Overview: The family of this 135-nucleotide RNA sequence from Oncorhynchus mykiss is "Small nucleolar RNA SNORA68". By type it is an H/ACA-box small nucleolar RNA. NCBI's taxonomy places the organism under Eukaryota, Vertebrata, Osteoglossocephalai, Salmoniformes, Oncorhynchus. From the family's description: U68 is a member of the H/ACA class of small nucleolar RNAs (snoRNAs) which act as guides in the the modification of uridines to pseudouridines.

RNA sequence: AAUGCACCCUAACCCAAAGGCCAUAUCAAAUAAAUGGUAUGAUCUUGUCAGGUGUGCUAAAAUCAACAUGAUGUACCUUGUCGCCUUUCUCUGAUGCUGAUGUGCCGUUGAAAGUGAAUCCAAGGUUCAACAUUU
Numbered sequence: 001a002a003u004g005c006a007c008c009c010u011a012a013c014c015c016a017a018a019g020g021c022c023a024u025a026u027c028a029a030a031u032a033a034a035u036g037g038u039a040u041g042a043u044c045u046u047g048u049c050a051g052g053u054g055u056g057c058u059a060a061a062a063u064c065a066a067c068a069u070g071a072u073g074u075a076c077c078u079u080g081u082c083g084c085c086u087u088u089c090u091c092u093g094a095u096g097c098u099g100a101u102g103u104g105c106c107g108u109u110g111a112a113a114g115u116g117a118a119u120c121c122a123a124g125g126u127u128c129a130a131c132a133u134u135u
Base pairs, nucleotide, nucleotide: 004057005056006055007054009052019044020043022041023040024039025038026037027036028035073128075126076125077124078123079122085114086113087112088111089110092107093106